[Rfam]
Shown here is a 156-nucleotide RNA sequence from Bacillus anthracis, a member of the family "glmS glucosamine-6-phosphate activated ribozyme aptamer". This entry contains a glucosamine-6-phosphate activated ribozyme that is found in the mRNA for GlmS. GlmS is an enzyme that uses fructose-6-phosphate and glutamine to generate glucosamine-6-phosphate. The ribozyme catalyses self cleavage of the glmS mRNA that is thought to regulate GlmS activity.
RNA sequence: UAAAUUAUAGAAGCGCCAGAACUACAAGUAGUGUAGUUGACGAGGUGGGGUUUAUCGAGAUUUCGGCGGAUGACUCCCGGUUGUUCAUCACAACCGCAAGCUUUUACUUAAAUCAUUAAGGUGACUUAGUGGACAAAGGUGAAAGUGUGAUGAGAG
Number, nucleotide and partner (000 for none) at each position: 001u000002a000003a000004a000005u000006u000007a000008u000009a000010g000011a000012a000013g000014c000015g000016c000017c000018a000019g000020a038021a037022c036023u035024a034025c033026a032027a000028g000029u000030a000031g000032u026033g025034u024035a023036g022037u021038u020039g000040a000041c000042g000043a000044g000045g000046u000047g077048g076049g075050g074051u073052u000053u000054a000055u066056c065057g064058a063059g000060a000061u000062u000063u058064c057065g056066g055067c000068g000069g000070a000071u000072g000073a051074c050075u049076c048077c047078c096079g095080g094081u093082u092083g091084u000085u000086c000087a000088u000089c000090a000091c083092a082093a081094c080095c079096g078097c000098a000099a000100g146101c145102u144103u143104u142105u141106a140107c000108u000109u000110a000111a000112a000113u000114c131115a130116u129117u128118a127119a126120g125121g000122u000123g000124a000125c120126u119127u118128a117129g116130u115131g114132g000133a000134c000135a000136a000137a000138g000139g000140u106141g105142a104143a103144a102145g101146u100147g000148u000149g000150a000151u000152g000153a000154g000155a000156g000

The base pairs follow the family's consensus structure, which is taken from published work. The literature on the family includes a 2004 paper in Nature by Winkler et al., "Control of gene expression by a natural metabolite-responsive ribozyme".